[Rfam]
RNA sequence: GAGCGGCCUCCGCCGAGUCCGGCGCGCCCGCGCGGCGACCGGAGCCGGGGACCCAACCGACUCUGGGGUGAAUCGGUCCGACCGCCCGUGGGGCAAGGACCGUAGGGCAAACCUUCCGGAAGUACCCGCCCGAACCCGACAGCUAACCCGGUAGGCGGAUGACGGAAGGAGU
Numbered sequence: 001g002a003g004c005g006g007c008c009u010c011c012g013c014c015g016a017g018u019c020c021g022g023c024g025c026g027c028c029c030g031c032g033c034g035g036c037g038a039c040c041g042g043a044g045c046c047g048g049g050g051a052c053c054c055a056a057c058c059g060a061c062u063c064u065g066g067g068g069u070g071a072a073u074c075g076g077u078c079c080g081a082c083c084g085c086c087c088g089u090g091g092g093g094c095a096a097g098g099a100c101c102g103u104a105g106g107g108c109a110a111a112c113c114u115u116c117c118g119g120a121a122g123u124a125c126c127c128g129c130c131c132g133a134a135c136c137c138g139a140c141a142g143c144u145a146a147c148c149c150g151g152u153a154g155g156c157g158g159a160u161g162a163c164g165g166a167a168g169g170a171g172u
Stems, first nucleotide, its partner, number of pairs: 011157004018043005044152006054065002066137003074102006105131004
RNA: c-di-AMP riboswitch aptamer (ydaO/yuaA leader)